[Rfam]
RNA sequence: AGUCUGGGGAAUGCGAUCUCCCCACGAGGCGACAUGCCGAAGAAUCGCGUCCCAGCAUGGAGGACGCAUCAUG
Numbered sequence: 001a002g003u004c005u006g007g008g009g010a011a012u013g014c015g016a017u018c019u020c021c022c023c024a025c026g027a028g029g030c031g032a033c034a035u036g037c038c039g040a041a042g043a044a045u046c047g048c049g050u051c052c053c054a055g056c057a058u059g060g061a062g063g064a065c066g067c068a069u070c071a072u073g
Stems, first nucleotide, its partner, number of pairs: 005024006047067006
Dot-bracket structure: ....((((((........))))))......................((((((.........))))))......
RNA: chrB-a RNA